Rfam assigns this 52-nucleotide RNA sequence from Gorilla gorilla to the family "mir-1302 microRNA precursor family". On this family, see Morin et al., Genome Res 2008: "Application of massively parallel sequencing to microRNA profiling and discovery in human embryonic stem cells". The organism belongs to Gorilla gorilla, within Eukaryota.
RNA sequence: UUUUCAGUGUAAAUAUGUUUCAUGCAACAUUUGGGAUAUACUUAUACUGAAA
Numbered sequence: 001u002u003u004u005c006a007g008u009g010u011a012a013a014u015a016u017g018u019u020u021c022a023u024g025c026a027a028c029a030u031u032u033g034g035g036a037u038a039u040a041c042u043u044a045u046a047c048u049g050a051a052a
Base pairs, nucleotide, nucleotide: 006048007047008046009045010044011043012042014040015039016038018036019035020034021033022031

Notes
The match comes from Rfam's covariance-model search (64 bits). The family has 24 seed sequences and 16,160 matches in Rfam 15.1. Its family is annotated with miRNA-mediated post-transcriptional gene silencing and RISC complex in the Gene Ontology.